[Rfam]
RNA sequence: GCGGUUCCGGUUCCCGCCUCGACGAGCCCGUCGAGACGACCCGGCGACC
Numbered sequence: 001g002c003g004g005u006u007c008c009g010g011u012u013c014c015c016g017c018c019u020c021g022a023c024g025a026g027c028c029c030g031u032c033g034a035g036a037c038g039a040c041c042c043g044g045c046g047a048c049c
Stems, first nucleotide, its partner, number of pairs: 003049003007044004015038002018035006
The family of this 49-nucleotide RNA from Catenuloplanes japonicus is "L31-Actinobacteria ribosomal protein leader". By type it is a cis-regulatory leader. The source organism's lineage runs through Bacteria, Bacillati, Actinomycetota, Micromonosporales and Catenuloplanes. The family's consensus secondary structure is taken from published work.